[Rfam]
RNA: Manganese Mn2+ riboswitch aptamer (yybP-ykoY)
Organism: Mangrovibacillus cuniculi
RNA sequence: ACAGCUGUCAAAGGGGAGUAGCGUUAGGGAAACCUAAAAUAACAUCGUCAUGACAUGAGUGCAUUCUCAUCGGUGUUAUUGACAUAUUUUAUGUUU
Numbered sequence: 001a002c003a004g005c006u007g008u009c010a011a012a013g014g015g016g017a018g019u020a021g022c023g024u025u026a027g028g029g030a031a032a033c034c035u036a037a038a039a040u041a042a043c044a045u046c047g048u049c050a051u052g053a054c055a056u057g058a059g060u061g062c063a064u065u066c067u068c069a070u071c072g073g074u075g076u077u078a079u080u081g082a083c084a085u086a087u088u089u090u091a092u093g094u095u096u
Stems, first nucleotide, its partner, number of pairs: 025036003038080010055070005081095006